The record is a 70-nucleotide sequence from Verticiella sediminum, which matches "Xanthine riboswitch aptamer (NMT1 RNA)" in Rfam. The base pairs follow the family's consensus structure, which is taken from published work.
RNA sequence: GUCAAGAGUAGAAGCGUUCAGCGGCUCGUCUGCGUCAUCGCCGACAGACCGCCCGGAAAUUGCUCGAUAC
Numbered sequence: 001g002u003c004a005a006g007a008g009u010a011g012a013a014g015c016g017u018u019c020a021g022c023g024g025c026u027c028g029u030c031u032g033c034g035u036c037a038u039c040g041c042c043g044a045c046a047g048a049c050c051g052c053c054c055g056g057a058a059a060u061u062g063c064u065c066g067a068u069a070c
Stems, first nucleotide, its partner, number of pairs: 006065005015055001018057002021052004026047001
A reference for the family is Xu et al. (2021), "Insights into xanthine riboswitch structure and metal ion-mediated ligand recognition", Nucleic Acids Res. The organism belongs to Verticiella, within Bacteria.